[Rfam]
RNA: U1 spliceosomal RNA
RNA sequence: AUACUUACCUGGACGGGGUCAAUGGGCGAUCAAGAAGGCUCAUGGUCUAGGUAGCGACCUCCAUUGCACAUGGGAGGAGUGUUAGCCUAUCAUCUUCCCAAGUGGGAGAGUAGACGUCAUAAUUUGUGAUAGAGGGGGUAUGCGUUCGCGCGGCCUCUA
Numbered sequence: 001a002u003a004c005u006u007a008c009c010u011g012g013a014c015g016g017g018g019u020c021a022a023u024g025g026g027c028g029a030u031c032a033a034g035a036a037g038g039c040u041c042a043u044g045g046u047c048u049a050g051g052u053a054g055c056g057a058c059c060u061c062c063a064u065u066g067c068a069c070a071u072g073g074g075a076g077g078a079g080u081g082u083u084a085g086c087c088u089a090u091c092a093u094c095u096u097c098c099c100a101a102g103u104g105g106g107a108g109a110g111u112a113g114a115c116g117u118c119a120u121a122a123u124u125u126g127u128g129a130u131a132g133a134g135g136g137g138g139u140a141u142g143c144g145u146u147c148g149c150g151c152g153g154c155c156u157c158u159a
Stems, first nucleotide, its partner, number of pairs: 012118004016048006023042005049088004054082003059077002061074002090113001092111001093109003097105002134158005141152004